[Rfam]
RNA sequence: UGCGUUCAGCACGCGCUUGUCAAUUUUUAUCAGAACAAGGAUAUGAGGUUAUCAAUGUCCAAGGUGGCAUGGAUGCCGUUGAAUAAGAAAAAUUUCCUUCGAAACCUUUAAAAAAAUGGGAAGGCUUCGAAGGAUUUUUUU
Numbered sequence: 001u002g003c004g005u006u007c008a009g010c011a012c013g014c015g016c017u018u019g020u021c022a023a024u025u026u027u028u029a030u031c032a033g034a035a036c037a038a039g040g041a042u043a044u045g046a047g048g049u050u051a052u053c054a055a056u057g058u059c060c061a062a063g064g065u066g067g068c069a070u071g072g073a074u075g076c077c078g079u080u081g082a083a084u085a086a087g088a089a090a091a092a093u094u095u096c097c098u099u100c101g102a103a104a105c106c107u108u109u110a111a112a113a114a115a116a117u118g119g120g121a122a123g124g125c126u127u128c129g130a131a132g133g134a135u136u137u138u139u140u141u
Stems, first nucleotide, its partner, number of pairs: 009020003032139004039077002046070001048068006095134009106123004

The record is a 141-nucleotide RNA sequence from Streptococcus infantis, which matches "Streptococcus sRNA SpF22" in Rfam. By type it is a small RNA. NCBI's taxonomy places the organism under Bacteria, Bacillati, Bacilli, Streptococcaceae, Streptococcus infantis. It is one of the family's seed sequences.